[Rfam]
The family of this 171-nucleotide RNA sequence from Vigna angularis is "small nucleolar RNA snoR127". NCBI's taxonomy places the organism under Eukaryota, Magnoliopsida, Pentapetalae, fabids, Vigna angularis. The literature on the family includes a 2009 paper in Nucleic Acids Res by Chen and Wu, "Mining small RNA sequencing data: a new approach to identify small nucleolar RNAs in Arabidopsis". By type it is a C/D-box small nucleolar RNA. It scores 83 bits against the family's covariance model. Rfam links the family to the GO terms RNA processing and nucleolus.

Nucleotides: 171
Stems, first nucleotide, its partner, number of pairs: 001170004
Number, partner (000 for none) and nucleotide at each position: 001170c002169u003168g004167g005000a006000a007000u008000g009000a010000u011000g012000u013000g014000a015000c016000u017000u018000a019000g020000c021000c022000a023000a024000a025000u026000c027000a028000u029000a030000u031000a032000a033000u034000g035000u036000g037000c038000u039000c040000c041000a042000u043000g044000u045000g046000g047000g048000a049000a050000c051000a052000a053000a054000c055000a056000u057000u058000g059000u060000u061000u062000c063000c064000a065000a066000a067000g068000c069000u070000u071000g072000c073000u074000c075000u076000c077000a078000c079000u080000u081000a082000a083000a084000a085000c086000u087000c088000a089000a090000g091000c092000u093000u094000u095000g096000g097000u098000u099000g100000a101000u102000g103000u104000u105000g106000a107000u108000g109000g110000a111000c112000c113000u114000c115000a116000u117000g118000u119000u120000g121000a122000a123000g124000u125000g126000c127000a128000u129000u130000u131000c132000c133000c134000u135000g136000a137000u138000g139000a140000u141000a142000u143000a144000c145000c146000a147000g148000g149000a150000g151000a152000u153000u154000g155000g156000u157000u158000g159000u160000u161000g162000c163000c164000u165000g166000a167004c168003c169002a170001g171000a